[Rfam]
RNA sequence: UAAAGAGUAAAGGUUCUGCUACGUUUUUAUAUGAGCAGUUCCCACGUUACUUUAGUGACAUCAAUACAUUGUUGAUUGUUAUUUGAUGAACCAUUGUAUUGUUUUCCAUGACAAAUGGUUCGUAGACAAUUUUACAUCU
Dot-bracket structure: ....(((....((..(((((.............)))))..)).......))).....................(((((((.......((((((......................))))))...)))))))........
Numbered sequence: 001u002a003a004a005g006a007g008u009a010a011a012g013g014u015u016c017u018g019c020u021a022c023g024u025u026u027u028u029a030u031a032u033g034a035g036c037a038g039u040u041c042c043c044a045c046g047u048u049a050c051u052u053u054a055g056u057g058a059c060a061u062c063a064a065u066a067c068a069u070u071g072u073u074g075a076u077u078g079u080u081a082u083u084u085g086a087u088g089a090a091c092c093a094u095u096g097u098a099u100u101g102u103u104u105u106c107c108a109u110g111a112c113a114a115a116u117g118g119u120u121c122g123u124a125g126a127c128a129a130u131u132u133u134a135c136a137u138c139u
Stems, first nucleotide, its partner, number of pairs: 005052003012042002016038005074131007088121006
Small nucleolar RNA snoR74: a 139-nucleotide sequence from Panicum hallii. On this family, see Marker et al., Curr Biol 2002: "Experimental RNomics: identification of 140 candidates for small non-messenger RNAs in the plant Arabidopsis thaliana". Rfam classes the family as an H/ACA-box small nucleolar RNA. Taxonomically the source falls in Panicum hallii (Eukaryota, Streptophytina, Tracheophyta, Panicinae).